[Rfam]
RNA sequence: ACACACGAAGGGAGGUGAUCCGGUAGAUGAGUGAGACCCGGACGCGUGAGGUGGCUGCGGGCUAGCGGCCCGUCACCCCACCCUGUGCGGUGCCGGACCAGCGCGUGACAGAGACGUGCGGCCGGCCCGAUUCCAAGCAGUCACCCGACCCGCGAGCUGCCGGUACGUCCGGCCGGCUCCUCCGCCGAGGCGGAGGGACCCAGCUCGCGGGUCGUCUGCG
Numbered sequence: 001a002c003a004c005a006c007g008a009a010g011g012g013a014g015g016u017g018a019u020c021c022g023g024u025a026g027a028u029g030a031g032u033g034a035g036a037c038c039c040g041g042a043c044g045c046g047u048g049a050g051g052u053g054g055c056u057g058c059g060g061g062c063u064a065g066c067g068g069c070c071c072g073u074c075a076c077c078c079c080a081c082c083c084u085g086u087g088c089g090g091u092g093c094c095g096g097a098c099c100a101g102c103g104c105g106u107g108a109c110a111g112a113g114a115c116g117u118g119c120g121g122c123c124g125g126c127c128c129g130a131u132u133c134c135a136a137g138c139a140g141u142c143a144c145c146c147g148a149c150c151c152g153c154g155a156g157c158u159g160c161c162g163g164u165a166c167g168u169c170c171g172g173c174c175g176g177c178u179c180c181u182c183c184g185c186c187g188a189g190g191c192g193g194a195g196g197g198a199c200c201c202a203g204c205u206c207g208c209g210g211g212u213c214g215u216c217u218g219c220g
Base pairs, nucleotide, nucleotide: 015058016057017056019054060127061126062125063124065122066121068119069118071116073114146214147213148212149211150210151209152208153207154206155205156204157203158202159177160176161175162174163173164172